Source information: The family of this 105-nucleotide RNA sequence from Nezara viridula is "Heliobacter pylori small RNA HPnc0580". It scores 37 bits against the family's covariance model.

RNA sequence: GUGGUUAUGUAUAGGUGUGGUACAUAGCCAGUAUUUACUCCUUUAUGUGACAUUGUGUGAGGGAACGAGAAGGAAUAUAUUGGAAUAUGAAUUCUAUUCAAUCGU
Numbered sequence: 001g002u003g004g005u006u007a008u009g010u011a012u013a014g015g016u017g018u019g020g021u022a023c024a025u026a027g028c029c030a031g032u033a034u035u036u037a038c039u040c041c042u043u044u045a046u047g048u049g050a051c052a053u054u055g056u057g058u059g060a061g062g063g064a065a066c067g068a069g070a071a072g073g074a075a076u077a078u079a080u081u082g083g084a085a086u087a088u089g090a091a092u093u094c095u096a097u098u099c100a101a102u103c104g105u
Stems, first nucleotide, its partner, number of pairs: 014028001016026003034065003038061003044057004082095004
Dot-bracket structure: .............(.(((.....))).).....(((.(((...((((......)))).))).)))................((((......))))..........